[Rfam]
RNA: SymR antitoxin
Organism: Salmonella enterica
RNA sequence: AGUCAUGGUCUCUAUUCCUUUUCAAUAGGGAUUGUGAUUAGCGGUGCGGGCGUGUUGGCGCACGCUCGCACCGCGCU
Numbered sequence: 001a002g003u004c005a006u007g008g009u010c011u012c013u014a015u016u017c018c019u020u021u022u023c024a025a026u027a028g029g030g031a032u033u034g035u036g037a038u039u040a041g042c043g044g045u046g047c048g049g050g051c052g053u054g055u056u057g058g059c060g061c062a063c064g065c066u067c068g069c070a071c072c073g074c075g076c077u
Stems, first nucleotide, its partner, number of pairs: 001039008011029006041074003045070011
Dot-bracket structure: ((((((((..((((((.......))))))..)))))))).(((.(((((((((((....))))))))))).)))...